[Rfam]
RNA sequence: CUCAUCACAACAAAUCCAGAUCUGUGUCCAGCAGUCCUGAUCCAGCCAGGGUAUUCGUAUCCCGGUUGUGUUUCGGUUGUAUUGCUGGACAGCUCGACGAUUCAUGGAGCCAUCGAGGGAAUUUAUUUAUUAUCUUCCCUUGCAAAAAAUGGUGUCAAUUUCCGGUCGACAGAUCUCAGAGAGAAUCUCAGCGGCCCGGUUCUUCUUUAUUGAACUAACACUUAGCCUUGAGCUCCCUCCCCGUUUCGGCGGGUUGGUGAAUUCGGUGAGGUGGCCGGGUUCCCGCUGGGGGCGUCAUAUUCCACCUCCCUUCACCGAUCUUUUUUGGCCGUCGGCUGAUGAGGUUAGGGAAAAACCAUGACUUGCCAACAUAU
Numbered sequence: 001c002u003c004a005u006c007a008c009a010a011c012a013a014a015u016c017c018a019g020a021u022c023u024g025u026g027u028c029c030a031g032c033a034g035u036c037c038u039g040a041u042c043c044a045g046c047c048a049g050g051g052u053a054u055u056c057g058u059a060u061c062c063c064g065g066u067u068g069u070g071u072u073u074c075g076g077u078u079g080u081a082u083u084g085c086u087g088g089a090c091a092g093c094u095c096g097a098c099g100a101u102u103c104a105u106g107g108a109g110c111c112a113u114c115g116a117g118g119g120a121a122u123u124u125a126u127u128u129a130u131u132a133u134c135u136u137c138c139c140u141u142g143c144a145a146a147a148a149a150u151g152g153u154g155u156c157a158a159u160u161u162c163c164g165g166u167c168g169a170c171a172g173a174u175c176u177c178a179g180a181g182a183g184a185a186u187c188u189c190a191g192c193g194g195c196c197c198g199g200u201u202c203u204u205c206u207u208u209a210u211u212g213a214a215c216u217a218a219c220a221c222u223u224a225g226c227c228u229u230g231a232g233c234u235c236c237c238u239c240c241c242c243g244u245u246u247c248g249g250c251g252g253g254u255u256g257g258u259g260a261a262u263u264c265g266g267u268g269a270g271g272u273g274g275c276c277g278g279g280u281u282c283c284c285g286c287u288g289g290g291g292g293c294g295u296c297a298u299a300u301u302c303c304a305c306c307u308c309c310c311u312u313c314a315c316c317g318a319u320c321u322u323u324u325u326u327g328g329c330c331g332u333c334g335g336c337u338g339a340u341g342a343g344g345u346u347a348g349g350g351a352a353a354a355a356c357c358a359u360g361a362c363u364u365g366c367c368a369a370c371a372u373a374u
Base pairs, nucleotide, nucleotide: 018176019175020174021173022172023171024170025169026090027089028088029087030086031085033083034082035081036079037076038075039074040073042070044067045066046065047064049062051060052059053058098168099167100166101165102164105157106156107155109153110152111151112150113149189285194282195279196278197277198276199275212264213263214262216256217255218254219253291367292366293365294362295361296360297359298358307351308350309349310348311347314345315344316343327337328336329335330334
This 374-nucleotide sequence from Blastomyces percursus belongs to the Rfam family "A. fumigatus sRNA Afu_309". NCBI's taxonomy places the organism under Eukaryota, Opisthokonta, Fungi, Eurotiomycetes, Blastomyces.